This 77-nucleotide RNA sequence from Alligator sinensis belongs to the Rfam family "Mammalian CPEB3 ribozyme". The match comes from Rfam's covariance-model search (38 bits). The mammalian CPEB3 ribozyme is a self cleaving RNA located in the second intron of the CPEB3 gene which belongs to a family of genes regulating messenger RNA polyadenylation. This ribozyme is highly conserved and found only in mammals. Lineage of the source: Eukaryota > Bilateria > Gnathostomata > Tetrapoda > Alligator. Its family is annotated with RNA nuclease activity in the Gene Ontology.
RNA sequence: GGUUGCAAGUAUGAGGCCACAGCAGAAGCGCUCAUGGCAUGGCCCUAUUAGAUUACAACGAAUAUGUGAAUUCUGCU
Numbered sequence: 001g002g003u004u005g006c007a008a009g010u011a012u013g014a015g016g017c018c019a020c021a022g023c024a025g026a027a028g029c030g031c032u033c034a035u036g037g038c039a040u041g042g043c044c045c046u047a048u049u050a051g052a053u054u055a056c057a058a059c060g061a062a063u064a065u066g067u068g069a070a071u072u073c074u075g076c077u
Base pairs, nucleotide, nucleotide: 013045015044016043017042018041021077022076023075024074025073026072027071028040030038049066050065052063053062054061